The record is a 245-nucleotide part of an RNA from Mediterranea sp. An20, which matches "Bacterial large subunit ribosomal RNA" in Rfam. NCBI's taxonomy places the organism under Bacteria, Pseudomonadati, Bacteroidia, Bacteroidales, Mediterranea. The family's consensus secondary structure is taken from published work.
Nucleotides: 245
Base pairs, nucleotide, nucleotide: 002158003157004156005155006154007153008152011145012144013143014142017045018044019043020042021041022040023039047102048101049100050099051098055096056095057094062089063088064087065086066085067082068081069080070079071078072077106140107139108138113133114132115131116130117129164241165240166239167238168184169183170182171181172180189234190233191232192230193229194228195227196226198223199222202218206217207216208215209214
Number, partner (000 for none) and nucleotide at each position: 001000u002158g003157a004156a005155a006154u007153u008152u009000g010000c011145g012144c013143g014142g015000c016000u017045c018044c019043g020042a021041c022040a023039c024000u025000a026000g027000u028000a029000c030000g031000a032000g033000a034000g035000g036000a037000c038000c039023g040022u041021g042020u043019u044018g045017g046000a047102c048101c049100g050099a051098c052000c053000u054000c055096u056095g057094g058000u059000u060000u061000g062089c063088c064087g065086g066085u067082u068081g069080u070079g071078c072077c073000g074000c075000c076000a077072g078071g079070c080069g081068c082067a083000u084000u085066g086065c087064c088063g089062g090000g091000u092000a093000u094057c095056u096055a097000a098051g099050u100049c101048g102047g103000g104000a105000u106140c107139g108138g109000a110000u111000a112000a113133g114132u115131g116130c117129u118000g119000a120000a121000a122000g123000c124000a125000u126000c127000u128000a129117a130116g131115c132114a133113c134000g135000a136000a137000g138108c139107c140106g141000g142014c143013c144012g145011c146000a147000a148000g149000a150000u151000u152008a153007g154006a155005u156004u157003u158002c159000u160000u161000u162000g163000a164241g165240g166239g167238c168184c169183g170182u171181c172180g173000u174000a175000g176000a177000c178000g179000a180172c181171g182170a183169c184168g185000u186000c187000g188000a189234u190233a191232g192230g193229a194228u195227g196226c197000a198223g199222g200000u201000g202218u203000a204000a205000a206217g207216g208215u209214g210000g211000c212000g213000a214209c215208a216207c217206c218202a219000a220000a221000g222199c223198c224000g225000a226196g227195c228194a229193u230192u231000a232191c233190u234189a235000a236000u237000u238167g239166c240165c241164c242000c243000u244000u245000c